[Rfam]
RNA: ZMP/ZTP riboswitch aptamer (pfl RNA motif)
RNA sequence: CCGCGUUCGCGCGACUGGCGAUUGAGAUGGAGCACCAUCGGGAAGCGCGAGCGGUCGAGCCCCGCGCCUGGGCAAUCGGG
Numbered sequence: 001c002c003g004c005g006u007u008c009g010c011g012c013g014a015c016u017g018g019c020g021a022u023u024g025a026g027a028u029g030g031a032g033c034a035c036c037a038u039c040g041g042g043a044a045g046c047g048c049g050a051g052c053g054g055u056c057g058a059g060c061c062c063c064g065c066g067c068c069u070g071g072g073c074a075a076u077c078g079g080g
Stems, first nucleotide, its partner, number of pairs: 004053009015042002017068004027038004059073003